[Rfam]
RNA sequence: UCCUUCAGUGUUGAAACAAUCUCUACUGAACAAGGCUUCAAAGUAAUUCACUGGAGUUUGUUUCAAUAUUGCAGGAC
Numbered sequence: 001u002c003c004u005u006c007a008g009u010g011u012u013g014a015a016a017c018a019a020u021c022u023c024u025a026c027u028g029a030a031c032a033a034g035g036c037u038u039c040a041a042a043g044u045a046a047u048u049c050a051c052u053g054g055a056g057u058u059u060g061u062u063u064c065a066a067u068a069u070u071g072c073a074g075g076a077c
Stems, first nucleotide, its partner, number of pairs: 003075003006071014021056005027050004